Shown here is an 87-nucleotide RNA sequence from Clostridium ljungdahlii, a member of the family "ZMP/ZTP riboswitch aptamer (pfl RNA motif)". The source organism's lineage runs through Bacteria, Bacillati, Bacillota, Eubacteriales and Clostridium.
RNA sequence: AUGUUAUUACGUAACUGGCGAAAUAGGAAUUGACUGCAGGGAGUGUAAUAUUAAGUUAAGACAGAGCCGAGCGCCUGGGCGAUAAAA
Numbered sequence: 001a002u003g004u005u006a007u008u009a010c011g012u013a014a015c016u017g018g019c020g021a022a023a024u025a026g027g028a029a030u031u032g033a034c035u036g037c038a039g040g041g042a043g044u045g046u047a048a049u050a051u052u053a054a055g056u057u058a059a060g061a062c063a064g065a066g067c068c069g070a071g072c073g074c075c076u077g078g079g080c081g082a083u084a085a086a087a
Stems, first nucleotide, its partner, number of pairs: 003052001005050008015040002017075004027034001066080003